[Rfam]
RNA: Archaeal large subunit ribosomal RNA, nucleotides 10 to 588
RNA sequence: GCACCUAUGCCGCCCGGGGGAUGGCUCGGCUCGGGCGCCGAGGAAGGGCGUGGCAAGCUGCGAUAAGCCCGGGGUAGGCGCAGGCAGCCGUCGAACCCGGGAUCCCCGAAUGGGACUUCCCGCUGCGGGUGAAGAGCCCGCAGCGCCCCCGUUUGGGGGCGGGAACCCCCCGAAAGGAAGCAUCUGAGUAGGGGGAGGAGAAGAAACCAACAGGGAUUCCCUGAGUAGGGGCGACCGAAAGGGGGAGAGCCCAAACCAAUCCCCCACGGGAGGACCGUGGGGGGAUGAGGGGUUGCGGCCCUGCGGCUGGGGCUUCGAGCCCCGGCGGGCCGACCCACGGUAGCCGAAGUGGGCUGGAAUGCCCCGCCGUAGAGGAUGAUAGCCCCGUAGGCGAAACCGUGGGGGCCCGUGCCGCAGGGCAGAGUACCACGGCUUGGUAUUGCCGUGGGAAGCUGGGAGGAACCGACUUCCAAGGCUAAAUACGUCCCGAGACCGAUAGCGAACUAAGUACCGUGAGGGAAAGCUGAAAAGAACCCCGGGAGGGGGGUGAAAAGAGCCUGAAACCGGGCGGCGACAUAC
Numbered sequence: 001g002c003a004c005c006u007a008u009g010c011c012g013c014c015c016g017g018g019g020g021a022u023g024g025c026u027c028g029g030c031u032c033g034g035g036c037g038c039c040g041a042g043g044a045a046g047g048g049c050g051u052g053g054c055a056a057g058c059u060g061c062g063a064u065a066a067g068c069c070c071g072g073g074g075u076a077g078g079c080g081c082a083g084g085c086a087g088c089c090g091u092c093g094a095a096c097c098c099g100g101g102a103u104c105c106c107c108g109a110a111u112g113g114g115a116c117u118u119c120c121c122g123c124u125g126c127g128g129g130u131g132a133a134g135a136g137c138c139c140g141c142a143g144c145g146c147c148c149c150c151g152u153u154u155g156g157g158g159g160c161g162g163g164a165a166c167c168c169c170c171c172g173a174a175a176g177g178a179a180g181c182a183u184c185u186g187a188g189u190a191g192g193g194g195g196a197g198g199a200g201a202a203g204a205a206a207c208c209a210a211c212a213g214g215g216a217u218u219c220c221c222u223g224a225g226u227a228g229g230g231g232c233g234a235c236c237g238a239a240a241g242g243g244g245g246a247g248a249g250c251c252c253a254a255a256c257c258a259a260u261c262c263c264c265c266a267c268g269g270g271a272g273g274a275c276c277g278u279g280g281g282g283g284g285a286u287g288a289g290g291g292g293u294u295g296c297g298g299c300c301c302u303g304c305g306g307c308u309g310g311g312g313c314u315u316c317g318a319g320c321c322c323c324g325g326c327g328g329g330c331c332g333a334c335c336c337a338c339g340g341u342a343g344c345c346g347a348a349g350u351g352g353g354c355u356g357g358a359a360u361g362c363c364c365c366g367c368c369g370u371a372g373a374g375g376a377u378g379a380u381a382g383c384c385c386c387g388u389a390g391g392c393g394a395a396a397c398c399g400u401g402g403g404g405g406c407c408c409g410u411g412c413c414g415c416a417g418g419g420c421a422g423a424g425u426a427c428c429a430c431g432g433c434u435u436g437g438u439a440u441u442g443c444c445g446u447g448g449g450a451a452g453c454u455g456g457g458a459g460g461a462a463c464c465g466a467c468u469u470c471c472a473a474g475g476c477u478a479a480a481u482a483c484g485u486c487c488c489g490a491g492a493c494c495g496a497u498a499g500c501g502a503a504c505u506a507a508g509u510a511c512c513g514u515g516a517g518g519g520a521a522a523g524c525u526g527a528a529a530a531g532a533a534c535c536c537c538g539g540g541a542g543g544g545g546g547g548u549g550a551a552a553a554g555a556g557c558c559u560g561a562a563a564c565c566g567g568g569c570g571g572c573g574a575c576a577u578a579c
Stems, first nucleotide, its partner, number of pairs: 008573010023558001024524002028494002030491006036484002046107003049062003068101006077089003112121003146159005166197001167195005177184002207214002218245005228236002248477004256290002266278004302416004327408004343392003349365001351364004368372001374386002427448007455471005511518002